Background:
Rfam assigns this 85-nucleotide RNA from Acipenser ruthenus to the family "Small nucleolar RNA SNORD60". Rfam links the family to the GO terms nucleolus and RNA processing. Pairs were carried over by alignment from the consensus structure, which was predicted with PFOLD. For this family Rfam cites "Purified box C/D snoRNPs are able to reproduce site-specific 2'-O-methylation of target RNA in vitro" (Galardi et al., Mol Cell Biol, 2002). The match comes from Rfam's covariance-model search (72 bits).

[Rfam]
RNA sequence: AGCCGAUGAUGAUCAUUUAACAUUUCUGACACCUCGUAUGAGUGCUGUUAAUGCAGUACUUGAUUACGUUUUAACUCUGAGGCUC
Numbered sequence: 001a002g003c004c005g006a007u008g009a010u011g012a013u014c015a016u017u018u019a020a021c022a023u024u025u026c027u028g029a030c031a032c033c034u035c036g037u038a039u040g041a042g043u044g045c046u047g048u049u050a051a052u053g054c055a056g057u058a059c060u061u062g063a064u065u066a067c068g069u070u071u072u073a074a075c076u077c078u079g080a081g082g083c084u085c
Base pairs, nucleotide, nucleotide: 001084002083003082004081044057045056046055047054048053